[Rfam]
Record summary:
This 124-nucleotide RNA from Carlito syrichta belongs to the Rfam family "U4atac minor spliceosomal RNA". On this family, see Lorkovic et al., RNA 2005: "Evolutionary conservation of minor U12-type spliceosome between plants and humans". Rfam links the family to the GO terms U4atac snRNP, pre-mRNA 5'-splice site binding and mRNA 5'-splice site recognition. Rfam describes the family as follows. U4atac is an essential component of the minor U12-type spliceosome complex which is required for removal of the rarer class of eukaryotic introns (AT-AC, U12-type).
RNA sequence: ACCAUUUUGGGGGGAGGUUCACUACCGUCCAAUGAGUACCUAGUGAGGUCAGUACUGAUAACAACUACUCAACACGCCUGCCUCAAUUAGAGCUUUGUUUUACUUUUGUGCAAGUUUUGGAAAA
Numbered sequence: 001a002c003c004a005u006u007u008u009g010g011g012g013g014g015a016g017g018u019u020c021a022c023u024a025c026c027g028u029c030c031a032a033u034g035a036g037u038a039c040c041u042a043g044u045g046a047g048g049u050c051a052g053u054a055c056u057g058a059u060a061a062c063a064a065c066u067a068c069u070c071a072a073c074a075c076g077c078c079u080g081c082c083u084c085a086a087u088u089a090g091a092g093c094u095u096u097g098u099u100u101u102a103c104u105u106u107u108g109u110g111c112a113a114g115u116u117u118u119g120g121a122a123a124a
Stems, first nucleotide, its partner, number of pairs: 001018003005014003019058003024053002027050001029048002036044002080111002083108001085106001088102006